Rfam assigns this 105-nucleotide RNA sequence from Prunus dulcis to the family "MIR6274 microRNA precursor family". NCBI's taxonomy places the organism under Eukaryota, Spermatophyta, Gunneridae, Amygdaleae, Prunus.
RNA sequence: GGAUAAUACUGUUUUGCUAUUUCCGACCAAUAACACAAUAACAUGUGGAAAAGUUAUCCUACCUGUCAUUGCGUUAUUGGUCGGGGAUAGUAAAACGUGUUAUCC
Numbered sequence: 001g002g003a004u005a006a007u008a009c010u011g012u013u014u015u016g017c018u019a020u021u022u023c024c025g026a027c028c029a030a031u032a033a034c035a036c037a038a039u040a041a042c043a044u045g046u047g048g049a050a051a052a053g054u055u056a057u058c059c060u061a062c063c064u065g066u067c068a069u070u071g072c073g074u075u076a077u078u079g080g081u082c083g084g085g086g087a088u089a090g091u092a093a094a095a096c097g098u099g100u101u102a103u104c105c
Stems, first nucleotide, its partner, number of pairs: 002104004012095009022085013036071004041066003045062004050057001